[Rfam]
RNA sequence: GGACUCGGUCUGCUGCAGCGCGCGUAGCAGAAGGCGAGGC
Numbered sequence: 001g002g003a004c005u006c007g008g009u010c011u012g013c014u015g016c017a018g019c020g021c022g023c024g025u026a027g028c029a030g031a032a033g034g035c036g037a038g039g040c
Stems, first nucleotide, its partner, number of pairs: 004038004009031007

Human immunodeficiency virus type 1 dimerisation initiation site: a 40-nucleotide RNA from Lentivirus simimdef. By type it is a cis-regulatory element. Rfam describes the family as follows. This cis element is composed of four hairpins called SL1 to SL4 (SL is for Stem Loop). This element is involved in encapsidation of the retroviral RNA an essential step in replication. The source organism's lineage runs through Viruses, Riboviria, Pararnavirae, Ortervirales and Lentivirus simimdef. The literature on the family includes a 2000 paper in J Mol Biol by Amarasinghe et al., "NMR structure of the HIV-1 nucleocapsid protein bound to stem-loop SL2 of the psi-RNA packaging signal. Implications for genome recognition". The sequence is in the family's curated seed alignment. Rfam links the family to the GO term viral RNA genome packaging.